[Rfam]
RNA sequence: GGUGGGGCCGGUUAAGCCCCCGGGCAAGGAACCCCCGGCGACGGGGUAGUACUUGCCCGGGGGCUAGCCGGUUCCACCGUACGUUCGGGAGCACGU
Numbered sequence: 001g002g003u004g005g006g007g008c009c010g011g012u013u014a015a016g017c018c019c020c021c022g023g024g025c026a027a028g029g030a031a032c033c034c035c036c037g038g039c040g041a042c043g044g045g046g047u048a049g050u051a052c053u054u055g056c057c058c059g060g061g062g063g064c065u066a067g068c069c070g071g072u073u074c075c076a077c078c079g080u081a082c083g084u085u086c087g088g089g090a091g092c093a094c095g096u
Base pairs, nucleotide, nucleotide: 001078002077003076004075005074006073007072008071009070010069011068012067019061020060021059022058023057024056025055028052033046034045035044036043037042081096082095083094084093
Dot-bracket structure: ((((((((((((......(((((((..(....(((((....))))).....)..))))))).....))))))))))))..((((........))))
The record is a 96-nucleotide part of an RNA from Nanoarchaeum equitans, which matches "Archaeal large subunit ribosomal RNA" in Rfam.
Rfam's curators put it in the seed alignment.
The organism belongs to Nanoarchaeum equitans, within Archaea.
Its Rfam clan is "LSU clan".
The base pairs follow the family's consensus structure, which is taken from published work.